[Rfam]
RNA: Nitrogen stress-induced RNA 1
RNA sequence: UGGUAGAUGCACCCUGAUAAUCCAUUCCCUAGUUGGCUGCCACCUGCUAGGGUUUUCUAUU
Number, nucleotide and partner (000 for none) at each position: 001u000002g013003g012004u011005a000006g000007a000008u000009g000010c000011a004012c003013c002014c000015u000016g000017a000018u000019a000020a000021u000022c000023c000024a000025u000026u000027c052028c051029c050030u049031a048032g047033u046034u000035g044036g043037c000038u000039g000040c000041c000042a000043c036044c035045u000046g033047c032048u031049a030050g029051g028052g027053u000054u000055u000056u000057c000058u000059a000060u000061u000